This 112-nucleotide RNA from Clostridium sp. HMP27 belongs to the Rfam family "THF (Tetrahydrofolate) riboswitch aptamer".
[Rfam]
RNA sequence: GUUAGAGUAGGUGAUUGCGCGUGAAGUGCUAGAUGGACAGGAAGUUGCCACUAGACGAAGAGAUUUUAAUGUUAUUUAAAGUUUCGCGAUGCAGUUGCCGCAUUCCGCUAAC
Number, nucleotide and partner (000 for none) at each position: 001g112002u111003u110004a109005g108006a000007g000008u000009a000010g099011g098012u097013g096014a095015u094016u093017g092018c091019g090020c088021g087022u086023g000024a000025a000026g056027u055028g000029c054030u053031a052032g051033a000034u050035g049036g048037a000038c000039a000040g105041g104042a103043a000044g101045u000046u000047g000048c036049c035050a034051c032052u031053a030054g029055a027056c026057g000058a000059a000060g085061a084062g083063a082064u081065u080066u079067u078068a077069a076070u000071g000072u000073u000074a000075u000076u069077u068078a067079a066080a065081g064082u063083u062084u061085c060086g022087c021088g020089a000090u019091g018092c017093a016094g015095u014096u013097g012098c011099c010100g000101c044102a000103u042104u041105c040106c000107g000108c005109u004110a003111a002112c001